The family of this 123-nucleotide sequence from Orbus hercynius is "Ribosomal S15 leader". A reference for the family is Benard et al. (1996), "Pseudoknot and translational control in the expression of the S15 ribosomal protein", Biochimie. The family's RNA type in Rfam is cis-regulatory leader. Lineage of the source: Bacteria > Pseudomonadati > Orbales > Orbaceae > Orbus. The match comes from Rfam's covariance-model search (68 bits). About the family: The E. coli Ribosomal S15 gene 5' UTR can form two alternative structures. One that is a series of three hairpins, The other includes a pseudoknot. The family is grouped with related families in Rfam's "Ribosomal Protein S15 Leader clan".
RNA sequence: GGAAAGCGCUGGAUUAGAGAUCGGCCUUUCUUGGUGUUGAUAAUUUAAUAUUUUUUAGGAGUUACUAUGUCUCUAAGUACAGAAAGCGUUGCACAAAUCGUUGCAGAACAUGGUCGUGGUGCA
Numbered sequence: 001g002g003a004a005a006g007c008g009c010u011g012g013a014u015u016a017g018a019g020a021u022c023g024g025c026c027u028u029u030c031u032u033g034g035u036g037u038u039g040a041u042a043a044u045u046u047a048a049u050a051u052u053u054u055u056u057a058g059g060a061g062u063u064a065c066u067a068u069g070u071c072u073c074u075a076a077g078u079a080c081a082g083a084a085a086g087c088g089u090u091g092c093a094c095a096a097a098u099c100g101u102u103g104c105a106g107a108a109c110a111u112g113g114u115c116g117u118g119g120u121g122c123a
Base pairs, nucleotide, nucleotide: 008025009024010023011022012021055077058074059073060072061071